Rfam assigns this 68-nucleotide RNA sequence to the family "DUF805 RNA".
RNA sequence: AAAAAGUGGAGACCAGAAACCACUAUAAAAACGGGGCACCACCGAAAAGCCAAAUGAGUAGGACAAAA
Dot-bracket structure: .....((((..........))))...........(((....[[.....))).........]]......